[Rfam]
RNA sequence: GGGGAGCCUGGUCCACCUGGCCCGGACCUCAGCCACACAGCUGAGGGACUGCGUCAGGGGGCCAAGGCUCUCC
Dot-bracket structure: ((((((..(((((..((((((.(((.(((((((......))))).)).))).)))))).)))).)..))))))
RNA: mir-631 microRNA precursor family